Small nucleolar RNA SNORD26: a 75-nucleotide sequence.
RNA sequence: CUACGGGGAUGAUUUUACGAACUGAACUCUCUCUUUCUGAUGGAUUAGUGGAGAAAACAGAAAAUUCUGAGUAGC
Numbered sequence: 001c002u003a004c005g006g007g008g009a010u011g012a013u014u015u016u017a018c019g020a021a022c023u024g025a026a027c028u029c030u031c032u033c034u035u036u037c038u039g040a041u042g043g044a045u046u047a048g049u050g051g052a053g054a055a056a057a058c059a060g061a062a063a064a065u066u067c068u069g070a071g072u073a074g075c
Stems, first nucleotide, its partner, number of pairs: 001074004

It is one of the family's seed sequences. The base pairs follow the family's consensus structure, which was predicted with PFOLD.